[Rfam]
RNA: MIR7504 microRNA precursor family
RNA sequence: AAUAGUUUUAUGCCACAUCAGCAUUUUUAUCUUGAAUUUCAGUAUAUUCAACCUGAAAAAAAAAUCAAAUCCAAAUUAAAAUCCUAAAAUUCAGGAUGAAAUUACUAUUGUGACAUAAAACUAUU
Numbered sequence: 001a002a003u004a005g006u007u008u009u010a011u012g013c014c015a016c017a018u019c020a021g022c023a024u025u026u027u028u029a030u031c032u033u034g035a036a037u038u039u040c041a042g043u044a045u046a047u048u049c050a051a052c053c054u055g056a057a058a059a060a061a062a063a064a065u066c067a068a069a070u071c072c073a074a075a076u077u078a079a080a081a082u083c084c085u086a087a088a089a090u091u092c093a094g095g096a097u098g099a100a101a102u103u104a105c106u107a108u109u110g111u112g113a114c115a116u117a118a119a120a121c122u123a124u125u
Stems, first nucleotide, its partner, number of pairs: 001125012014112004020106002023102002026100002029097011041085002045081001047079002